Shown here is a 177-nucleotide RNA from Sus scrofa, a member of the family "FGF-1 internal ribosome entry site (IRES)". Rfam 15.1 lists 127 matches to the family in 125 species. Gene Ontology term of the family: ribosome binding. The base pairs follow the family's consensus structure, which is taken from published work. From the family's description: This family represents the FGF-1 internal ribosome entry site (IRES). The FGF-1 IRES is present in the 5' UTR of the mRNA and allows cap-independent translation.

[Rfam]
RNA sequence: CACUCCAGGGAAAAAGGGCAUCGCCUCCUUUGGUGAAGGACACUCCCUGCUGAUGGAGGAUGGGAAAUCCCUUCCUCCUGCCGCAGCCCAGCUGGCCUGCAGUGGACCUGCUAGGACAGUGUGGACCUUGUAGGCUGUCGCAGCUGCCGUCGCCCCAGAGAGAAAGCGCCCCAGAGC
Numbered sequence: 001c002a003c004u005c006c007a008g009g010g011a012a013a014a015a016g017g018g019c020a021u022c023g024c025c026u027c028c029u030u031u032g033g034u035g036a037a038g039g040a041c042a043c044u045c046c047c048u049g050c051u052g053a054u055g056g057a058g059g060a061u062g063g064g065a066a067a068u069c070c071c072u073u074c075c076u077c078c079u080g081c082c083g084c085a086g087c088c089c090a091g092c093u094g095g096c097c098u099g100c101a102g103u104g105g106a107c108c109u110g111c112u113a114g115g116a117c118a119g120u121g122u123g124g125a126c127c128u129u130g131u132a133g134g135c136u137g138u139c140g141c142a143g144c145u146g147c148c149g150u151c152g153c154c155c156c157a158g159a160g161a162g163a164a165a166g167c168g169c170c171c172c173a174g175a176g177c
Base pairs, nucleotide, nucleotide: 003176004175005174008172009171010170015048016047017046018045024039025038026037028035050158051157056077058074059073060072062071063070064069082152083151084146085145086144087143097133098132099131100130101129102128104127108123